[Rfam]
RNA sequence: GUUUGCCUGUGUGUAGAUGGUGUUCAGCACCAAGGACAGGUGUGCUUACCUGUAUGUAAAUGUUUUCAGCACAUUGGACAGGUGUGCUUACCU
Numbered sequence: 001g002u003u004u005g006c007c008u009g010u011g012u013g014u015a016g017a018u019g020g021u022g023u024u025c026a027g028c029a030c031c032a033a034g035g036a037c038a039g040g041u042g043u044g045c046u047u048a049c050c051u052g053u054a055u056g057u058a059a060a061u062g063u064u065u066u067c068a069g070c071a072c073a074u075u076g077g078a079c080a081g082g083u084g085u086g087c088u089u090a091c092c093u
Base pairs, nucleotide, nucleotide: 004084005083006082007081008080009079010078020072021071022070023069024068026066027065029063031062032061034055036053037052038051039050040049041048042047
RNA: mir-2060 microRNA precursor family